[Rfam]
RNA sequence: GAAUUUCGUCAAAGCCGACCUCCUCCCCGGCAAUGACGAAUAGGCCGAUCUUCACCUCCUCCCGAGGAUCGACCAACAAAACGACACCCGCCGGACCUCCUCCCCCGGCGGGUGUUGUGU
Numbered sequence: 001g002a003a004u005u006u007c008g009u010c011a012a013a014g015c016c017g018a019c020c021u022c023c024u025c026c027c028c029g030g031c032a033a034u035g036a037c038g039a040a041u042a043g044g045c046c047g048a049u050c051u052u053c054a055c056c057u058c059c060u061c062c063c064g065a066g067g068a069u070c071g072a073c074c075a076a077c078a079a080a081a082c083g084a085c086a087c088c089c090g091c092c093g094g095a096c097c098u099c100c101u102c103c104c105c106c107g108g109c110g111g112g113u114g115u116u117g118u119g120u
Base pairs, nucleotide, nucleotide: 007038008037009036011034014031015030016029017028043074044073046071047070048069049068050067051066052065084115085114086113087112088111089110090109091108092107093106094105
Dot-bracket structure: ......(((.(..((((..........))))..).)))....((.(((((((............))))))).)).........(((((((((((..........))))))))))).....
This 120-nucleotide RNA sequence from Mesorhizobium sp. WSM3876 belongs to the Rfam family "Alphaproteobacterial ar14". The base pairs follow the family's consensus structure. On this family, see del Val et al., RNA Biol 2012: "A survey of sRNA families in alpha-proteobacteria". NCBI's taxonomy places the organism under Bacteria, Pseudomonadati, Pseudomonadota, Hyphomicrobiales, Mesorhizobium. Rfam's curators write: Smr14C2 was renamed NfeR1 (Nodule Formation Efficiency RNA) highly expressed in salt stress and during the symbiotic interaction on legume roots. By type it is a small RNA.